Annotation
This 579-nucleotide part of an RNA from Candidatus Acidianus copahuensis belongs to the Rfam family "Archaeal small subunit ribosomal RNA". Its Rfam clan is "SSU clan". A reference for the family is Yusupov et al. (2001), "Crystal structure of the ribosome at 5.5 A resolution", Science. Its family is annotated with ribosome and structural constituent of ribosome in the Gene Ontology. It scores 1476 bits against the family's covariance model.

[Rfam]
RNA sequence: UGGCGGGGGAGCACCACAAGGGGUGGAACCUGCGGCUCAAUUGGAGUCAACGCCUGGAAUCUUACCGGGAGAGACCGCAGUUUGACGGCCAGGCUAACGACCUUGCCAGACUCGCGGAGAGGAGGCGCAUGGCCGUCGCCAGCUCGUGUUGUGAAAUGUCCGGUUAAGUCCGGCAACGAGCGAGACCCUCGCUGCUAGUUGGAAUCUGUCCCUCUGGGGGCGGACCACACUAGCGGAACUGCCGUCGUAAGGCGGAGGAAGGAGAGGGCCACGGCAGGUCAGCAUGCCCCGAAACUCCCGGGCCGCACGCGGGUUACAAUGGCUGGGACAGCGGGUUCCGACUCCGAAAGGAGAAGGUAAUCCCUAAACCCUGCCUCAGUUGGGAUCGAGGGUUGGAACCCACCCUCGUGAACGAGGAAUCCCUAGUAACCGCAGGUCAACAACCUGCGGUGAAUACGUCCCUGCUCCUUGCACACACCGCCCGUCGCUCCACCCGAGUGAGGAAGAAGUGAGGUUUCUUGCCUUUCGGGGUGGGGGAUCGAACUUCUUCCUCGCGAGGGGGGAGAAGUCGUAACAAGG
Dot-bracket structure: (((((.(((((((..((..((((((.((((((((((....(.((........)).)........(((((((...((((((......(((.(((.......))).)))...)).))))...((.((((..(((((((((...(((((((((....)))..((((......))))..)))))).....((((.(((((((...(...(((((((....))))))).)....)))))))..((.(((((....))))).)).....))))....)))).)))...))))))))....)))))))...)).)))))))).)...(((.(((.....(((..((..((((....))))..))....)))....))).)))......(....(((((((........)))))))....).....))))).....((((((((.......))))))))......))...)))))))))).))..(.(..((.(.((((.(((..(((((((((((((..((((((((((((....))))))))))))..)))))))))))))..))).))))..).))...)..).